[Rfam]
RNA: LOOT RNA
RNA sequence: GGCCUAAACCGAUAAGCAAUUAUUGGCAUGGUCGCCAAAUCCACGAAAAGAAACAGCUCGUCAUGAGUACUUCUUUUCGUGGUUGCUACUGGAAACGGUGGUAGGGGCGUAAGCCUC
Dot-bracket structure: ((((....(((((((....)))))))...)))).......(((((((((((....((((.....))))...))))))))))).((((((((....))))))))(((((....)))))